[Rfam]
RNA sequence: GGAGGUAGGCCCUCCGGUCAGGGGUUGCAGGACUACUGAUCAAACAACCUGAUGCUGCUGGUUUCUAAGGAGAUUGGUGGUGAGCGUUUCAGAAAAAGGCUGGGAUACUACCGUCACGU
Numbered sequence: 001g002g003a004g005g006u007a008g009g010c011c012c013u014c015c016g017g018u019c020a021g022g023g024g025u026u027g028c029a030g031g032a033c034u035a036c037u038g039a040u041c042a043a044a045c046a047a048c049c050u051g052a053u054g055c056u057g058c059u060g061g062u063u064u065c066u067a068a069g070g071a072g073a074u075u076g077g078u079g080g081u082g083a084g085c086g087u088u089u090c091a092g093a094a095a096a097a098g099g100c101u102g103g104g105a106u107a108c109u110a111c112c113g114u115c116a117c118g119u
Stems, first nucleotide, its partner, number of pairs: 001015005016041006023034004046119001049092004054081002057078003061074002063071002099115001101113003
Dot-bracket structure: (((((.....)))))((((((.((((....)))).))))))....(..((((.((.(((.((((.....)).)).))).)).......))))......(.(((.......))).)...)
RNA: Group II catalytic intron D1-D4-2